[Rfam]
U7 small nuclear RNA: a 57-nucleotide sequence from Callithrix jacchus.
Taxonomically the source falls in Callithrix (Eukaryota, Opisthokonta, Gnathostomata, Amniota).
It scores 38 bits against the family's covariance model.
Rfam describes the family as follows. Animal histone pre-mRNAs are spliced by a different mechanism than nuclear pre-mRNAs and self-splicing introns. This processing involves the U7 snRNP, which contains only one RNA species: U7. The 5' end of U7 RNA is thought to base-pair to a conserved spacer element downstream of the cleavage site in histone pre-mRNA. This family contains a number of annotated U7 pseudogenes.

RNA sequence: GAAUGUUAGGGCUUUUUAGAAUUUAGUAGGUUUUCUGGUCUUCACCAGAAAGCUCCC
Numbered sequence: 001g002a003a004u005g006u007u008a009g010g011g012c013u014u015u016u017u018a019g020a021a022u023u024u025a026g027u028a029g030g031u032u033u034u035c036u037g038g039u040c041u042u043c044a045c046c047a048g049a050a051a052g053c054u055c056c057c
Stems, first nucleotide, its partner, number of pairs: 029054011